RNA sequence: GGCCGGGUGGAGAGGCGUAAUACAAUACCCGCGAGGGGAAUAUGCCCGGAGCUACGUUACAUGCUCCAGUUGACACCCGGUCACCAGCUA
Numbered sequence: 001g002g003c004c005g006g007g008u009g010g011a012g013a014g015g016c017g018u019a020a021u022a023c024a025a026u027a028c029c030c031g032c033g034a035g036g037g038g039a040a041u042a043u044g045c046c047c048g049g050a051g052c053u054a055c056g057u058u059a060c061a062u063g064c065u066c067c068a069g070u071u072g073a074c075a076c077c078c079g080g081u082c083a084c085c086a087g088c089u090a
Base pairs, nucleotide, nucleotide: 001082002081003080004079005078006077007076008075009074014046015045016044018042019041028037029036030035048067049066050065051064052063

This 90-nucleotide RNA sequence from Erwinia tracheiphila belongs to the Rfam family "sRNA-Xcc1".
The base pairs follow the family's consensus structure, which was predicted with RNAalifold.
A search with the family's covariance model found it, with a score of 62 bits.
The family's RNA type in Rfam is small RNA.
The organism belongs to Erwinia, within Bacteria.